[Rfam]
RNA sequence: CGAAGUGCCCUCUCGAUCUGGCGGACGGAAGCGUAGAGAACUCCCAUCCUCCCAGCUCAGAGGGCACUUUCGCGUUCAAUCACCCCAACAGACAGCCACAAAAAGCGGUGCAUCCAG
Number, nucleotide and partner (000 for none) at each position: 001c000002g070003a069004a068005g067006u066007g065008c064009c063010c062011u061012c060013u000014c000015g058016a057017u000018c055019u054020g053021g052022c000023g049024g048025a047026c000027g000028g044029a000030a042031g041032c000033g000034u000035a000036g000037a000038g000039a000040a000041c031042u030043c000044c028045c000046a000047u025048c024049c023050u000051c000052c021053c020054a019055g018056c000057u016058c015059a000060g012061a011062g010063g009064g008065c007066a006067c005068u004069u003070u002071c000072g000073c000074g000075u000076u000077c000078a000079a000080u000081c000082a000083c000084c000085c000086c000087a000088a000089c000090a000091g000092a000093c000094a000095g000096c000097c000098a000099c000100a113101a000102a000103a000104a109105g000106c000107g000108g000109u104110g000111c000112a000113u100114c000115c000116a000117g000